Archaeal large subunit ribosomal RNA: a 579-nucleotide part of an RNA from Methanothermus fervidus.
The organism belongs to Methanothermus fervidus, within Archaea.
RNA sequence: CCUCCGGUGGGAAGCGAAGACCCCGUAGAGCUUUACUGCAGCCUGCUGUUGGGGUCUGGUCAUGGGUAUGCAGCGUAGGCGGGAGGCUUCGAAGCCAGGUCGCCAGGCCUGGUGGAGCCGCCCAUGAGACACCGCCUUCCCAUGGCCGGGCCCCUAACCCCCGAAAGGGGGGACAGCAGUAGGUGGGCAGUUUGGCUGGGGCGGCACGCCCUUGAAAAGAUAUCAAGGGCGCCCAAAGGUCGGCUCAGGCGGGUCAGGAACCCGCCGUAGAGUGUAAGGGCAAAAGCCGGCCUGACUGCACCCCUAACAGUAGGGGGUGCAGGGGCGAAAGCCGGGCCUAGCGAACCUCCGUGCCUCCUCGAUGGGGGCCGGAGAUGACAGAAAAGCUACCUCGGGGAUAACUGGGUGGUCGCGGGCAAGAGCCCACAUCGACCCCGCGGCUUGCUACUUCGAUGUCGGCUCUCCUCACCCUGGGCGUGCAGCAGCGCCCAAGGGUGGGGUUGUUCGCCCAUUAAAGAGGAACGUGAGCUGGGUUUAGACCGUCGUGAGACAGGUUGGUUGCUAUCUACCGGAGGUGUU
Numbered sequence: 001c002c003u004c005c006g007g008u009g010g011g012a013a014g015c016g017a018a019g020a021c022c023c024c025g026u027a028g029a030g031c032u033u034u035a036c037u038g039c040a041g042c043c044u045g046c047u048g049u050u051g052g053g054g055u056c057u058g059g060u061c062a063u064g065g066g067u068a069u070g071c072a073g074c075g076u077a078g079g080c081g082g083g084a085g086g087c088u089u090c091g092a093a094g095c096c097a098g099g100u101c102g103c104c105a106g107g108c109c110u111g112g113u114g115g116a117g118c119c120g121c122c123c124a125u126g127a128g129a130c131a132c133c134g135c136c137u138u139c140c141c142a143u144g145g146c147c148g149g150g151c152c153c154c155u156a157a158c159c160c161c162c163g164a165a166a167g168g169g170g171g172g173a174c175a176g177c178a179g180u181a182g183g184u185g186g187g188c189a190g191u192u193u194g195g196c197u198g199g200g201g202c203g204g205c206a207c208g209c210c211c212u213u214g215a216a217a218a219g220a221u222a223u224c225a226a227g228g229g230c231g232c233c234c235a236a237a238g239g240u241c242g243g244c245u246c247a248g249g250c251g252g253g254u255c256a257g258g259a260a261c262c263c264g265c266c267g268u269a270g271a272g273u274g275u276a277a278g279g280g281c282a283a284a285a286g287c288c289g290g291c292c293u294g295a296c297u298g299c300a301c302c303c304c305u306a307a308c309a310g311u312a313g314g315g316g317g318u319g320c321a322g323g324g325g326c327g328a329a330a331g332c333c334g335g336g337c338c339u340a341g342c343g344a345a346c347c348u349c350c351g352u353g354c355c356u357c358c359u360c361g362a363u364g365g366g367g368g369c370c371g372g373a374g375a376u377g378a379c380a381g382a383a384a385a386g387c388u389a390c391c392u393c394g395g396g397g398a399u400a401a402c403u404g405g406g407u408g409g410u411c412g413c414g415g416g417c418a419a420g421a422g423c424c425c426a427c428a429u430c431g432a433c434c435c436c437g438c439g440g441c442u443u444g445c446u447a448c449u450u451c452g453a454u455g456u457c458g459g460c461u462c463u464c465c466u467c468a469c470c471c472u473g474g475g476c477g478u479g480c481a482g483c484a485g486c487g488c489c490c491a492a493g494g495g496u497g498g499g500g501u502u503g504u505u506c507g508c509c510c511a512u513u514a515a516a517g518a519g520g521a522a523c524g525u526g527a528g529c530u531g532g533g534u535u536u537a538g539a540c541c542g543u544c545g546u547g548a549g550a551c552a553g554g555u556u557g558g559u560u561g562c563u564a565u566c567u568a569c570c571g572g573a574g575g576u577g578u579u
Stems, first nucleotide, its partner, number of pairs: 001575008010567003014562002022396004027392002029388005035191004042183007051154016068137001078136005085119003097110005158171004194207001195205003208230006233336002239291006245271002248266006272281002296322009324333001326331001347374005353369005405446003409443001410440007420430002457532001458530004462524001463521005470495002474489005498510004538556004542551003